[Rfam]
RNA sequence: CCACUCGAUAGAGGCGCGGGCGAGAAGAUCCGCGGGCGAGCCGGCAGGCGUGGACCCCGCGGGGAGGCGAGCCCGCCGAACUCGGCGCGCGGGCGCGUGCGCACGGGUGGGCCUGCGGGGAACACCCGCAGGACUGUCUGCACGUAACCUGCAGGAGCGCUAUCAGGGAG
Numbered sequence: 001c002c003a004c005u006c007g008a009u010a011g012a013g014g015c016g017c018g019g020g021c022g023a024g025a026a027g028a029u030c031c032g033c034g035g036g037c038g039a040g041c042c043g044g045c046a047g048g049c050g051u052g053g054a055c056c057c058c059g060c061g062g063g064g065a066g067g068c069g070a071g072c073c074c075g076c077c078g079a080a081c082u083c084g085g086c087g088c089g090c091g092g093g094c095g096c097g098u099g100c101g102c103a104c105g106g107g108u109g110g111g112c113c114u115g116c117g118g119g120g121a122a123c124a125c126c127c128g129c130a131g132g133a134c135u136g137u138c139u140g141c142a143c144g145u146a147a148c149c150u151g152c153a154g155g156a157g158c159g160c161u162a163u164c165a166g167g168g169a170g
Stems, first nucleotide, its partner, number of pairs: 007164005016076006024068001030062007080108005085102007109135002112132008137155006
This 170-nucleotide RNA from Olsenella sp. An188 belongs to the Rfam family "Lysine riboswitch aptamer". Its family is annotated with lysine biosynthetic process in the Gene Ontology. Riboswitches are metabolite binding domains within certain messenger RNAs that serve as precision sensors for their corresponding targets. The family's consensus secondary structure is taken from published work.